This 76-nucleotide sequence from Penelope pileata belongs to the Rfam family "mir-26 microRNA precursor family". Gene Ontology terms of the family: RISC complex and miRNA-mediated post-transcriptional gene silencing. The family's consensus secondary structure was predicted with RNAalifold.

RNA sequence: CCGCGGCCCGCUUCAAGUAAUCCAGGAUUGGCUGUGCCCCCCCGGCCCAUCCUCGGUUACUUGGGCUGGGACGCAG
Numbered sequence: 001c002c003g004c005g006g007c008c009c010g011c012u013u014c015a016a017g018u019a020a021u022c023c024a025g026g027a028u029u030g031g032c033u034g035u036g037c038c039c040c041c042c043c044g045g046c047c048c049a050u051c052c053u054c055g056g057u058u059a060c061u062u063g064g065g066c067u068g069g070g071a072c073g074c075a076g
Stems, first nucleotide, its partner, number of pairs: 003074003007070004012065001014063009024053005030047004
It scores 64 bits against the family's covariance model. On this family, see Lagos-Quintana et al., Science 2001: "Identification of novel genes coding for small expressed RNAs". Rfam 15.1 lists 2,251 matches to the family in 645 species. Taxonomically the source falls in Penelope (Eukaryota, Sarcopterygii, Sauropsida, Galliformes).